[Rfam]
RNA sequence: GUGAAAUAAAUCACAUAACAAACAUACACCCCUUUGUUUGAACGUGAACAUUUCUCCCAUCCCCUUUGUGUAAAGAGGUGCCUAUAAUUAGGCACCUCUUUU
Numbered sequence: 001g002u003g004a005a006a007u008a009a010a011u012c013a014c015a016u017a018a019c020a021a022a023c024a025u026a027c028a029c030c031c032c033u034u035u036g037u038u039u040g041a042a043c044g045u046g047a048a049c050a051u052u053u054c055u056c057c058c059a060u061c062c063c064c065u066u067u068g069u070g071u072a073a074a075g076a077g078g079u080g081c082c083u084a085u086a087a088u089u090a091g092g093c094a095c096c097u098c099u100u101u102u
Stems, first nucleotide, its partner, number of pairs: 003054005011047004019040006074099011
This 102-nucleotide RNA from Lysinibacillus composti belongs to the Rfam family "RNA Staph. aureus E (RoxS)". The base pairs follow the family's consensus structure, which is taken from published work. NCBI's taxonomy places the organism under Bacteria, Bacilli, Caryophanales, Bacillaceae, Lysinibacillus. It was shown to be regulated by the presence of nitric oxide (NO). In Bacillus subtilis it controls expression of genes with functions related to oxidative stress and oxidation-reduction reactions and it was renamed RoxS (for related to oxidative stress). Rfam links the family to the GO term regulation of translational initiation.